RNA sequence: UGAGUGGGCAAGACGAUCGCUGGUGGGCCUUUAGGCAAACUGGAGGAAAGUCCGGGCUCCGCAGGAUAGGAUGGUCGAUAACGUCGACCGGCCGCGAGGCUAGGGAAAGUGCAGCAGAGAACAGACCGCCGAACGGUCAGACGCGGUCGUCACACGACGACCAACUUUGACGCGUGGUAAGGGUGAAACGGUGCGGUAAGAGCGCACCAGCAGCCGAGGUGACUCGACUGGCUUGGUAAACCCCAUCCGGAGCUAGACCAAACAGAGUGCAGUGGUGCGAAUCUUUCGAGGUUCGCAUUCCGCGAAGCGAUCCGCUUCGUUUUCGACAUUCGGGUAGGUCGCAAUUGAGGCGACGAGCAAUCGUCGUGCACAGAUAAAUGGUCGUCGGCGCAUGCCAUGCAUGUCGUCACAGAACCCGGCUUACUAACCCGCUCACGGC
Numbered sequence: 001u002g003a004g005u006g007g008g009c010a011a012g013a014c015g016a017u018c019g020c021u022g023g024u025g026g027g028c029c030u031u032u033a034g035g036c037a038a039a040c041u042g043g044a045g046g047a048a049a050g051u052c053c054g055g056g057c058u059c060c061g062c063a064g065g066a067u068a069g070g071a072u073g074g075u076c077g078a079u080a081a082c083g084u085c086g087a088c089c090g091g092c093c094g095c096g097a098g099g100c101u102a103g104g105g106a107a108a109g110u111g112c113a114g115c116a117g118a119g120a121a122c123a124g125a126c127c128g129c130c131g132a133a134c135g136g137u138c139a140g141a142c143g144c145g146g147u148c149g150u151c152a153c154a155c156g157a158c159g160a161c162c163a164a165c166u167u168u169g170a171c172g173c174g175u176g177g178u179a180a181g182g183g184u185g186a187a188a189c190g191g192u193g194c195g196g197u198a199a200g201a202g203c204g205c206a207c208c209a210g211c212a213g214c215c216g217a218g219g220u221g222a223c224u225c226g227a228c229u230g231g232c233u234u235g236g237u238a239a240a241c242c243c244c245a246u247c248c249g250g251a252g253c254u255a256g257a258c259c260a261a262a263c264a265g266a267g268u269g270c271a272g273u274g275g276u277g278c279g280a281a282u283c284u285u286u287c288g289a290g291g292u293u294c295g296c297a298u299u300c301c302g303c304g305a306a307g308c309g310a311u312c313c314g315c316u317u318c319g320u321u322u323u324c325g326a327c328a329u330u331c332g333g334g335u336a337g338g339u340c341g342c343a344a345u346u347g348a349g350g351c352g353a354c355g356a357g358c359a360a361u362c363g364u365c366g367u368g369c370a371c372a373g374a375u376a377a378a379u380g381g382u383c384g385u386c387g388g389c390g391c392a393u394g395c396c397a398u399g400c401a402u403g404u405c406g407u408c409a410c411a412g413a414a415c416c417c418g419g420c421u422u423a424c425u426a427a428c429c430c431g432c433u434c435a436c437g438g439c
Stems, first nucleotide, its partner, number of pairs: 001435008012386007020043005027036002048422003052419005057252004064313004069248005074088005089103001090101004104243002109241002111237002126182002128178004134172002190208006210232001211230003215226004256340004265331005305317004349369001350367007
This 439-nucleotide RNA sequence from Novipirellula maiorica belongs to the Rfam family "Bacterial RNase P class A". Rfam classes the family as a ribozyme.